[Rfam]
RNA: mir-375 microRNA precursor family
RNA sequence: ACGUUGAGCCACACGCACAAUACAUGUGGAUUCAGUUUUGUUCGUUCGGCUCGCGUU
Numbered sequence: 001a002c003g004u005u006g007a008g009c010c011a012c013a014c015g016c017a018c019a020a021u022a023c024a025u026g027u028g029g030a031u032u033c034a035g036u037u038u039u040g041u042u043c044g045u046u047c048g049g050c051u052c053g054c055g056u057u
Base pairs, nucleotide, nucleotide: 001056002055003054005053006052007051008050009049010048014044015043017041018040019039020038022036023035